[Rfam]
RNA sequence: GGGUCUGCUGCUGGAUGCGCUUGAUGGUGGCUCCCUUGGGGCCAACGACAAGCCCUACCACGCGGUAAGGCAC
Numbered sequence: 001g002g003g004u005c006u007g008c009u010g011c012u013g014g015a016u017g018c019g020c021u022u023g024a025u026g027g028u029g030g031c032u033c034c035c036u037u038g039g040g041g042c043c044a045a046c047g048a049c050a051a052g053c054c055c056u057a058c059c060a061c062g063c064g065g066u067a068a069g070g071c072a073c
Stems, first nucleotide, its partner, number of pairs: 004069001006067006012060003017055001019053003023049001025048001027046002030043001032041003
A member of the RNA family "mir-1905 microRNA precursor family" from Myripristis murdjan, 73 nucleotides long. Its family is annotated with miRNA-mediated post-transcriptional gene silencing and RISC complex in the Gene Ontology. The organism belongs to Myripristis, within Eukaryota.